[Rfam]
RNA sequence: UAAUGAAGAUGAAAAAUGGAACUGCGCGAACAGUUCCCUUUUGACAGCACCGUUUAAGAAGGUGGCUCAGUUUAAAAAUAGUUACAA
Numbered sequence: 001u002a003a004u005g006a007a008g009a010u011g012a013a014a015a016a017u018g019g020a021a022c023u024g025c026g027c028g029a030a031c032a033g034u035u036c037c038c039u040u041u042u043g044a045c046a047g048c049a050c051c052g053u054u055u056a057a058g059a060a061g062g063u064g065g066c067u068c069a070g071u072u073u074a075a076a077a078a079u080a081g082u083u084a085c086a087a
Stems, first nucleotide, its partner, number of pairs: 021034004049063003053059002
RNA: RNA anti-toxin A